[Rfam]
RNA sequence: GGCUGUUCUCAGGGCGGGGUGAAAUUCCCCACCGGCGGUGAUAGCCCGCGAGCGCCUUCCGCAAGGAAGGGUCAAGCAGAUCCGGUGGAACUCCGGGGCCGACGGUUAAAGUCCGGAUGGAAGAGACGCAC
Numbered sequence: 001g002g003c004u005g006u007u008c009u010c011a012g013g014g015c016g017g018g019g020u021g022a023a024a025u026u027c028c029c030c031a032c033c034g035g036c037g038g039u040g041a042u043a044g045c046c047c048g049c050g051a052g053c054g055c056c057u058u059c060c061g062c063a064a065g066g067a068a069g070g071g072u073c074a075a076g077c078a079g080a081u082c083c084g085g086u087g088g089a090a091c092u093c094c095g096g097g098g099c100c101g102a103c104g105g106u107u108a109a110a111g112u113c114c115g116g117a118u119g120g121a122a123g124a125g126a127c128g129c130a131c
Stems, first nucleotide, its partner, number of pairs: 004130003007126004017029003031112002033101002035049004044099002052077002081097005103115003
Annotation:
Rfam assigns this 131-nucleotide RNA from Salipiger pallidus to the family "FMN riboswitch aptamer (RFN element)". The family's consensus secondary structure is taken from published work. Rfam describes the family as follows. The RFN element is a highly conserved domain that is found frequently in the 5'-untranslated regions of prokaryotic mRNAs that encode for flavin mononucleotide (FMN) biosynthesis and transport proteins.